Shown here is a 370-nucleotide RNA from Sphingorhabdus profundilacus, a member of the family "Bacterial RNase P class A". Rfam classes the family as a ribozyme. Ribonuclease P (RNase P) is a ubiquitous endoribonuclease, found in archaea, bacteria and eukarya as well as chloroplasts and mitochondria. A search with the family's covariance model found it, with a score of 317 bits. NCBI's taxonomy places the organism under Bacteria, Pseudomonadati, Alphaproteobacteria, Sphingorhabdaceae, Sphingorhabdus.
[Rfam]
RNA sequence: CCAGAGGGUUGGGCGACCGCCGCUUCACGGGUAACUGUGUUGGGGAGGAAAGUCCGGGCUCCAGCGAGGAACGGUGCCGGAUAACGUCCGGCUGAGGUAACUCAAGGGAAAGUGCCACAGAAAUCAUACCUCCGCAUUGCGAUGCGGUAAGGUCGAAAUGGUGCGGUAAGAGCGCACCGCGUUGCUGGCAACAGGAACGGCACGGCAAACCCCACCGGGAGCAAAACCGAAUAGGGGCGGCACAUGGCAUCCUCCUGCCAGUCGCCCGGGUUGGUUGCAUGAGCGGCGCAGCAAUGUUCCGCCUAGAUGAAUGGUCGCACAAUCGCCUUCGGGCGGUGGACAAAACCCGGCUUAUAGACCCUCUGGCUUU
Dot-bracket structure: (((((((((((.((((((.((.(..(((........)))..).))....[[[.[[[[[((((.....[[..((((((((((.....)))))(((((....)))).)((...(((((............((.((((((....))))))...)).......((((((.......))))))(((((.(((....))).)))).)..)))..)))))))))))))...((((......((((((....(((((..]]..))))).)))))).....))))......((((.(((....))).))))..........))))))...........................]]]]]]]].).))))))))))....
Numbered sequence: 001c002c003a004g005a006g007g008g009u010u011g012g013g014c015g016a017c018c019g020c021c022g023c024u025u026c027a028c029g030g031g032u033a034a035c036u037g038u039g040u041u042g043g044g045g046a047g048g049a050a051a052g053u054c055c056g057g058g059c060u061c062c063a064g065c066g067a068g069g070a071a072c073g074g075u076g077c078c079g080g081a082u083a084a085c086g087u088c089c090g091g092c093u094g095a096g097g098u099a100a101c102u103c104a105a106g107g108g109a110a111a112g113u114g115c116c117a118c119a120g121a122a123a124u125c126a127u128a129c130c131u132c133c134g135c136a137u138u139g140c141g142a143u144g145c146g147g148u149a150a151g152g153u154c155g156a157a158a159u160g161g162u163g164c165g166g167u168a169a170g171a172g173c174g175c176a177c178c179g180c181g182u183u184g185c186u187g188g189c190a191a192c193a194g195g196a197a198c199g200g201c202a203c204g205g206c207a208a209a210c211c212c213c214a215c216c217g218g219g220a221g222c223a224a225a226a227c228c229g230a231a232u233a234g235g236g237g238c239g240g241c242a243c244a245u246g247g248c249a250u251c252c253u254c255c256u257g258c259c260a261g262u263c264g265c266c267c268g269g270g271u272u273g274g275u276u277g278c279a280u281g282a283g284c285g286g287c288g289c290a291g292c293a294a295u296g297u298u299c300c301g302c303c304u305a306g307a308u309g310a311a312u313g314g315u316c317g318c319a320c321a322a323u324c325g326c327c328u329u330c331g332g333g334c335g336g337u338g339g340a341c342a343a344a345a346c347c348c349g350g351c352u353u354a355u356a357g358a359c360c361c362u363c364u365g366g367c368u369u370u
Stems, first nucleotide, its partner, number of pairs: 001366010011355001013318006020045002023042001026039003050353003054350005059221004068253002072217005077091005092106001093104004107212002112210002114206003129152002132147006160178006179201001180199004185194003225276004235267006245260005283302004288297003